[Rfam]
RNA: Group II catalytic intron D1-D4-7
RNA sequence: CCCGCCGUGCGACCGGCGGUAGGCUGGGAGCGCGCGUGUUGCUGGCAACGGCGGCGUGCGAAGGUGCUCUGACAAUGUAGUCCGACAGUGGGCAAUAUCGCGAGGUGUUGCGUAGAGGCUCCGAGCAGCGAUGUGGCUCAGACG
Numbered sequence: 001c002c003c004g005c006c007g008u009g010c011g012a013c014c015g016g017c018g019g020u021a022g023g024c025u026g027g028g029a030g031c032g033c034g035c036g037u038g039u040u041g042c043u044g045g046c047a048a049c050g051g052c053g054g055c056g057u058g059c060g061a062a063g064g065u066g067c068u069c070u071g072a073c074a075a076u077g078u079a080g081u082c083c084g085a086c087a088g089u090g091g092g093c094a095a096u097a098u099c100g101c102g103a104g105g106u107g108u109u110g111c112g113u114a115g116a117g118g119c120u121c122c123g124a125g126c127a128g129c130g131a132u133g134u135g136g137c138u139c140a141g142a143c144g
Stems, first nucleotide, its partner, number of pairs: 002019006028069005033060012089114002092111001098105002118137003122133002